[Rfam]
RNA sequence: UAAAAUAAUGAGCAAACUCAUCGAAAGGUGAGGACGCAAAGCCAUGGAUCUAGAGGGUUCUAAACCUAUGAUUGCCAGGUUGCAACU
Numbered sequence: 001u002a003a004a005a006u007a008a009u010g011a012g013c014a015a016a017c018u019c020a021u022c023g024a025a026a027g028g029u030g031a032g033g034a035c036g037c038a039a040a041g042c043c044a045u046g047g048a049u050c051u052a053g054a055g056g057g058u059u060c061u062a063a064a065c066c067u068a069u070g071a072u073u074g075c076c077a078g079g080u081u082g083c084a085a086c087u
Stems, first nucleotide, its partner, number of pairs: 012037002017032006040081004045077003048072003055066002058063001
c-di-GMP-I riboswitch aptamer: an 87-nucleotide RNA sequence from Pelosinus fermentans. Taxonomically the source falls in Pelosinus fermentans (Bacteria, Bacillota, Sporomusaceae, Pelosinus). The family is grouped with related families in Rfam's "c-di-GMP_I riboswitch clan". A search with the family's covariance model found it, with a score of 76 bits.